Source information:
This 52-nucleotide sequence belongs to the Rfam family "6A RNA".

[Rfam]
RNA sequence: UGAUGUGAUUGUAGAGCGCAAUCACGUAAAUCAAAAGAAAGCUCAAUCGAUG
Numbered sequence: 001u002g003a004u005g006u007g008a009u010u011g012u013a014g015a016g017c018g019c020a021a022u023c024a025c026g027u028a029a030a031u032c033a034a035a036a037g038a039a040a041g042c043u044c045a046a047u048c049g050a051u052g
Stems, first nucleotide, its partner, number of pairs: 006024006014044004
About this RNA:
It is one of the family's seed sequences. Pairs were carried over by alignment from the consensus structure, which is taken from published work.